[Rfam]
RNA sequence: UGAUAUAAGGAUACCGAAGCGGGAGUUUUUUUUGCUUGCACAAAAAAACUCACAUUUAUGGUAUCCAUAAAACAUGAGGAAGUAGCCCGAUAGGGCGAAAUCCGAAUGUUUUUAGGAUUGAGAAAGCACGAAGUGCGAAACAAUCCGUAAAUAUCA
Numbered sequence: 001u002g003a004u005a006u007a008a009g010g011a012u013a014c015c016g017a018a019g020c021g022g023g024a025g026u027u028u029u030u031u032u033u034g035c036u037u038g039c040a041c042a043a044a045a046a047a048a049c050u051c052a053c054a055u056u057u058a059u060g061g062u063a064u065c066c067a068u069a070a071a072a073c074a075u076g077a078g079g080a081a082g083u084a085g086c087c088c089g090a091u092a093g094g095g096c097g098a099a100a101u102c103c104g105a106a107u108g109u110u111u112u113u114a115g116g117a118u119u120g121a122g123a124a125a126g127c128a129c130g131a132a133g134u135g136c137g138a139a140a141c142a143a144u145c146c147g148u149a150a151a152u153a154u155c156a
Stems, first nucleotide, its partner, number of pairs: 001156006010065004017057003021053001023051007030043002033040002069112007078103003085096004115146006126136004
Shown here is a 156-nucleotide RNA from Eubacterium sp. CAG:156, a member of the family "Clostridiales-1 RNA". The family's RNA type in Rfam is small RNA.